[Rfam]
RNA sequence: CAAUAACAUACGGGUCUUUAAGGGUGGUAGCACUUCCCAUAGAAGGGAGGUGUUGCGUGAUGACAACAUUUGAAGCGCUGAUGCUUAUGUUUGUUUUUGGCGGUUUGAUUGUGUCAAUUACAUCGCGAGACAAGAAAUAACCACCCUUAAGCGCUGCUAACGUAGUAGGGUGGUUGUGUACCUCAAAUUAAGCGGCUGUCCCUCUUAGGGAGUCCGGUUAUUGCAGACCAUGGGUGUUACUAGCACCUGUG
Numbered sequence: 001c002a003a004u005a006a007c008a009u010a011c012g013g014g015u016c017u018u019u020a021a022g023g024g025u026g027g028u029a030g031c032a033c034u035u036c037c038c039a040u041a042g043a044a045g046g047g048a049g050g051u052g053u054u055g056c057g058u059g060a061u062g063a064c065a066a067c068a069u070u071u072g073a074a075g076c077g078c079u080g081a082u083g084c085u086u087a088u089g090u091u092u093g094u095u096u097u098u099g100g101c102g103g104u105u106u107g108a109u110u111g112u113g114u115c116a117a118u119u120a121c122a123u124c125g126c127g128a129g130a131c132a133a134g135a136a137a138u139a140a141c142c143a144c145c146c147u148u149a150a151g152c153g154c155u156g157c158u159a160a161c162g163u164a165g166u167a168g169g170g171u172g173g174u175u176g177u178g179u180a181c182c183u184c185a186a187a188u189u190a191a192g193c194g195g196c197u198g199u200c201c202c203u204c205u206u207a208g209g210g211a212g213u214c215c216g217g218u219u220a221u222u223g224c225a226g227a228c229c230a231u232g233g234g235u236g237u238u239a240c241u242a243g244c245a246c247c248u249g250u251g
Stems, first nucleotide, its partner, number of pairs: 001223005007217001010199004015194001017151008026141001028139002030053003034049005062124002068118001075090003100115001162184001200212001202210002229251010